The record is a 139-nucleotide RNA from Capsicum annuum, which matches "MIR7993 microRNA precursor family" in Rfam. The family has 4 seed sequences and 59 matches in Rfam 15.1. Gene Ontology terms of the family: miRNA-mediated post-transcriptional gene silencing and RISC complex. A search with the family's covariance model found it, with a score of 108 bits.

RNA sequence: UUAAGUUGACCACAUAAAAUAUACCAUCUCCUUUAAUUAUAUGCAUUCAUCUUAGUAAGUCGUAAACCCAGACGUUUUCUAACCAAGGUUGAUGCGUAAAAUUAAAGGAGAGAGGAUAUUUUAUGUGGUUAACUUAACU
Numbered sequence: 001u002u003a004a005g006u007u008g009a010c011c012a013c014a015u016a017a018a019a020u021a022u023a024c025c026a027u028c029u030c031c032u033u034u035a036a037u038u039a040u041a042u043g044c045a046u047u048c049a050u051c052u053u054a055g056u057a058a059g060u061c062g063u064a065a066a067c068c069c070a071g072a073c074g075u076u077u078u079c080u081a082a083c084c085a086a087g088g089u090u091g092a093u094g095c096g097u098a099a100a101a102u103u104a105a106a107g108g109a110g111a112g113a114g115g116a117u118a119u120u121u122u123a124u125g126u127g128g129u130u131a132a133c134u135u136a137a138c139u
Stems, first nucleotide, its partner, number of pairs: 001137022024114001028110011040098008049089004